[Rfam]
RNA: Small nucleolar RNA SNORD72
Organism: Molossus molossus
RNA sequence: AUUCAGUGAGUGAUGUAAAAAAAGUAAAUGUCUAACAUAUUAAUUUAAUAUUAAUUUUAGCAUUUAACUCAUUUAAA
Numbered sequence: 001a002u003u004c005a006g007u008g009a010g011u012g013a014u015g016u017a018a019a020a021a022a023a024g025u026a027a028a029u030g031u032c033u034a035a036c037a038u039a040u041u042a043a044u045u046u047a048a049u050a051u052u053a054a055u056u057u058u059a060g061c062a063u064u065u066a067a068c069u070c071a072u073u074u075a076a077a
Stems, first nucleotide, its partner, number of pairs: 002076002005073004